[Rfam]
RNA sequence: CCGCGCUAGAUGGGGAGCUGGCGGUGCCCUGUACCCGCAAUCCGCCUUAGCGGGAUCGAAUUCCCGGCAGAGGUCCUCAUCGUGUGGGGUCCGGUCCGUGCAAGAGGUGUUGACGAACAGGUCCUGCGCAACGGGAACCUCCGAACCGUGUCAGGUCCUGACGGAAGCAGCACUAAGGGGAUCCUCCCGUGUGCCGCGGGGGUGCCUGAUCCGAGCUGAUUGCAUGGAGCCCGCCCAGGCGAAGGAGAUCGAAGCCGGGUGCGCGG
Number, nucleotide and partner (000 for none) at each position: 001c266002c265003g264004c263005g262006c261007u000008a000009g057010a056011u055012g030013g029014g028015g027016a000017g025018c024019u023020g000021g000022c000023g019024g018025u017026g000027c015028c014029c013030u012031g000032u000033a000034c054035c053036c052037g051038c050039a000040a000041u000042c000043c000044g000045c000046c000047u000048u000049a000050g038051c037052g036053g035054g034055a011056u010057c009058g000059a000060a000061u000062u000063c259064c258065c257066g256067g255068c254069a000070g000071a000072g250073g249074u248075c247076c000077u000078c000079a000080u242081c241082g240083u239084g000085u237086g236087g235088g234089g000090u000091c000092c233093g232094g000095u000096c227097c226098g225099u224100g223101c222102a000103a000104g221105a220106g217107g216108u215109g000110u000111u000112g000113a000114c000115g211116a210117a000118c208119a207120g206121g205122u204123c200124c199125u198126g197127c196128g195129c191130a190131a000132c189133g188134g187135g186136a185137a182138c000139c180140u179141c178142c177143g000144a000145a000146c000147c000148g173149u172150g171151u170152c000153a000154g000155g000156u165157c164158c163159u000160g000161a000162c000163g158164g157165a156166a000167g000168c000169a000170g151171c150172a149173c148174u000175a000176a000177g142178g141179g140180g139181a000182u137183c000184c000185u136186c135187c134188c133189g132190u130191g129192u000193g000194c000195c128196g127197c126198g125199g124200g123201g000202g000203u000204g122205c121206c120207u119208g118209a000210u116211c115212c000213g000214a000215g108216c107217u106218g000219a000220u105221u104222g101223c100224a099225u098226g097227g096228a000229g000230c000231c000232c093233g092234c088235c087236c086237a085238g000239g083240c082241g081242a080243a000244g000245g000246a000247g075248a074249u073250c072251g000252a000253a000254g068255c067256c066257g065258g064259g063260u000261g006262c005263g004264c003265g002266g001
The record is a 266-nucleotide RNA from Melghirimyces profundicolus, which matches "Bacterial large signal recognition particle RNA" in Rfam. It scores 215 bits against the family's covariance model. Pairs were carried over by alignment from the consensus structure, which is taken from published work.